The family of this 66-nucleotide RNA sequence from Mytilus coruscus is "Selenocysteine insertion sequence 1".
Lineage of the source: Eukaryota > Eumetazoa > Bilateria > Protostomia > Mytilus.
The family's consensus secondary structure is taken from published work.
On this family, see Lambert et al., Biochimie 2002: "A survey of metazoan selenocysteine insertion sequences".
It is annotated as a cis-regulatory element.

[Rfam]
RNA sequence: GUCUGUUCAUGACGUUAAAAUACUAAAUCCCUGGGAUGUGUUUUAGUUGAUUUUAGUCUCUGAGGC
Numbered sequence: 001g002u003c004u005g006u007u008c009a010u011g012a013c014g015u016u017a018a019a020a021u022a023c024u025a026a027a028u029c030c031c032u033g034g035g036a037u038g039u040g041u042u043u044u045a046g047u048u049g050a051u052u053u054u055a056g057u058c059u060c061u062g063a064g065g066c
Stems, first nucleotide, its partner, number of pairs: 001066004014047010028036003